A member of the RNA family "mir-8834 microRNA precursor family" from Canis lupus, 105 nucleotides long. Lineage of the source: Eukaryota > Deuterostomia > Teleostomi > Sarcopterygii > Canis lupus. Pairs were carried over by alignment from the consensus structure, which was predicted with RNAalifold. The family has 2 seed sequences and 13,926 matches in Rfam 15.1. Rfam links the family to the GO terms RISC complex and miRNA-mediated post-transcriptional gene silencing.
RNA sequence: AGGAGGAACAACCCCAGUGGCUAUGGCAGCUCUGGAAACCUGGAGUCAGUUCCUACAGUAACUGCAGAGCUCUCCGUCUGCAGGGUCUGGAGGCUCCGGGGCAGG
Numbered sequence: 001a002g003g004a005g006g007a008a009c010a011a012c013c014c015c016a017g018u019g020g021c022u023a024u025g026g027c028a029g030c031u032c033u034g035g036a037a038a039c040c041u042g043g044a045g046u047c048a049g050u051u052c053c054u055a056c057a058g059u060a061a062c063u064g065c066a067g068a069g070c071u072c073u074c075c076g077u078c079u080g081c082a083g084g085g086u087c088u089g090g091a092g093g094c095u096c097c098g099g100g101g102c103a104g105g
Stems, first nucleotide, its partner, number of pairs: 002097004009089002012085003019078003025072001028071007036063001040058003